A member of the RNA family "Actinobacteria sRNA Ms_IGR-5" from Streptomyces longispororuber, 221 nucleotides long. The pairing is the family consensus, mapped onto this sequence. Rfam classes the family as a small RNA. A search with the family's covariance model found it, with a score of 72 bits.
RNA sequence: ACUUCGGAGAGGAGGUGGUUCGGCAGAUGUAUGGAAACCGGACGGAAGAGGUGGCUGCGGGCUAGCGGCCCGCCACCACAUUCAGUGCGGUGCCGGACCAGCGCGUGAGACAGGCGCGCAGCCGGCCGGAAUUCACAGCAGUCACCCGACCCGCGAGCCGCCGGUACGUCCGGCCGGCUCCCCCGGCCCAGCCGGGGGACCAGGCUCGCGGGUUGCUGCGU
Numbered sequence: 001a002c003u004u005c006g007g008a009g010a011g012g013a014g015g016u017g018g019u020u021c022g023g024c025a026g027a028u029g030u031a032u033g034g035a036a037a038c039c040g041g042a043c044g045g046a047a048g049a050g051g052u053g054g055c056u057g058c059g060g061g062c063u064a065g066c067g068g069c070c071c072g073c074c075a076c077c078a079c080a081u082u083c084a085g086u087g088c089g090g091u092g093c094c095g096g097a098c099c100a101g102c103g104c105g106u107g108a109g110a111c112a113g114g115c116g117c118g119c120a121g122c123c124g125g126c127c128g129g130a131a132u133u134c135a136c137a138g139c140a141g142u143c144a145c146c147c148g149a150c151c152c153g154c155g156a157g158c159c160g161c162c163g164g165u166a167c168g169u170c171c172g173g174c175c176g177g178c179u180c181c182c183c184c185g186g187c188c189c190a191g192c193c194g195g196g197g198g199a200c201c202a203g204g205c206u207c208g209c210g211g212g213u214u215g216c217u218g219c220g221u
Stems, first nucleotide, its partner, number of pairs: 015058005060127004065122002068119002071116001073114002147215013160178006